Shown here is a 67-nucleotide RNA sequence from Drosophila mojavensis, a member of the family "mir-2 microRNA precursor family". It is one of the family's seed sequences. The source organism's lineage runs through Eukaryota, Metazoa, Bilateria, Drosophilini and mojavensis species complex.

[Rfam]
RNA sequence: CAUGUCGUUAAAAUGUCUGUGACCGUAUGUAUUCACUAUCAUAUCACAGCCAUUUUGACGAGUUUGG
Numbered sequence: 001c002a003u004g005u006c007g008u009u010a011a012a013a014u015g016u017c018u019g020u021g022a023c024c025g026u027a028u029g030u031a032u033u034c035a036c037u038a039u040c041a042u043a044u045c046a047c048a049g050c051c052a053u054u055u056u057g058a059c060g061a062g063u064u065u066g067g
Stems, first nucleotide, its partner, number of pairs: 005061011017049006026043003